[Rfam]
RNA sequence: UACAGUGGUCAGUUUUGCUGGUUUGCAUCCAGCUCUUAACACUGUUUGCUGUGCAAAUCCAUGCAAAACUGACUGUGACA
Numbered sequence: 001u002a003c004a005g006u007g008g009u010c011a012g013u014u015u016u017g018c019u020g021g022u023u024u025g026c027a028u029c030c031a032g033c034u035c036u037u038a039a040c041a042c043u044g045u046u047u048g049c050u051g052u053g054c055a056a057a058u059c060c061a062u063g064c065a066a067a068a069c070u071g072a073c074u075g076u077g078a079c080a
Stems, first nucleotide, its partner, number of pairs: 005076014020060002022057007031050003
Dot-bracket structure: ....((((((((((((((.(((((((((..(((..............)))))))))).))..))))))))))))))....
The record is an 80-nucleotide RNA from Chanos chanos, which matches "mir-19 microRNA precursor family" in Rfam. Taxonomically the source falls in Chanos (Eukaryota, Actinopterygii, Osteoglossocephalai, Otomorpha). Its family is annotated with miRNA-mediated post-transcriptional gene silencing and RISC complex in the Gene Ontology. The base pairs follow the family's consensus structure, which was predicted with RNAalifold. For this family Rfam cites "Identification of novel genes coding for small expressed RNAs" (Lagos-Quintana et al., Science, 2001).